[Rfam]
RNA sequence: UUGUCUCUGGGGCUUGUUUUCCGUUGCCUGCGUUUUUUUCCAGUGACUCAGGCAGCGAAAGCAAGUCUGGGAGGCUG
Dot-bracket structure: ..((.(((.(((((((((((.(((((((((.(..............).)))))))))))))))))))).))).))..
RNA: mir-1788 microRNA precursor family
Organism: Chaetura pelagica